[Rfam]
RNA: Makes More Granules Regulator RNA (mmgR)
RNA sequence: UGAUCCUGCCUUUCAGGCAUCCUCUCCCAAAACUUUCAAAGCCGAUCGGGCAACCGGUCGGCUUUUUUUCGCCUCAUG
Numbered sequence: 001u002g003a004u005c006c007u008g009c010c011u012u013u014c015a016g017g018c019a020u021c022c023u024c025u026c027c028c029a030a031a032a033c034u035u036u037c038a039a040a041g042c043c044g045a046u047c048g049g050g051c052a053a054c055c056g057g058u059c060g061g062c063u064u065u066u067u068u069u070c071g072c073c074u075c076a077u078g
Stems, first nucleotide, its partner, number of pairs: 008018004040063009